This 125-nucleotide sequence from Gillisella ampelina belongs to the Rfam family "Alphaproteobacterial ar14". Gene Ontology term of the family: biological process involved in symbiotic interaction. The sequence is in the family's curated seed alignment.
[Rfam]
RNA sequence: AUACACCGGGCCAGCUUCUCCUCCUCCCAGAGCGGCCCGUCGGAAUGACGGAACUCCUCCUCCCAGCCGUCGUUCGGUUCUUUUCGAAAAGCCUGCCGCACCUCCUCCCGCGGCAGGCUUUUCGU
Numbered sequence: 001a002u003a004c005a006c007c008g009g010g011c012c013a014g015c016u017u018c019u020c021c022u023c024c025u026c027c028c029a030g031a032g033c034g035g036c037c038c039g040u041c042g043g044a045a046u047g048a049c050g051g052a053a054c055u056c057c058u059c060c061u062c063c064c065a066g067c068c069g070u071c072g073u074u075c076g077g078u079u080c081u082u083u084u085c086g087a088a089a090a091g092c093c094u095g096c097c098g099c100a101c102c103u104c105c106u107c108c109c110g111c112g113g114c115a116g117g118c119u120u121u122u123c124g125u
Stems, first nucleotide, its partner, number of pairs: 007039003011035002014033004043075009089120011
Rfam describes the family as follows. Smr14C2 was renamed NfeR1 (Nodule Formation Efficiency RNA) highly expressed in salt stress and during the symbiotic interaction on legume roots. Pairs were carried over by alignment from the consensus structure. Taxonomically the source falls in Gillisella ampelina (Bacteria, Pseudomonadota, Alphaproteobacteria, Gillisella).